[Rfam]
Nucleotides: 084
Base pairs, nucleotide, nucleotide: 001084002083003082004081005080006079007078
Number, partner (000 for none) and nucleotide at each position: 001084u002083g003082u004081u005080g006079u007078g008000a009000a010000u011000g012000a013000u014000g015000a016000g017000a018000a019000c020000a021000u022000c023000a024000a025000u026000a027000g028000u029000u030000u031000u032000a033000c034000a035000g036000u037000u038000a039000u040000c041000c042000c043000u044000g045000u046000c047000u048000g049000a050000u051000u052000g053000c054000a055000g056000u057000u058000g059000c060000u061000g062000a063000u064000a065000a066000u067000u068000u069000u070000u071000u072000c073000u074000c075000u076000g077000a078007c079006a080005c081004a082003a083002c084001a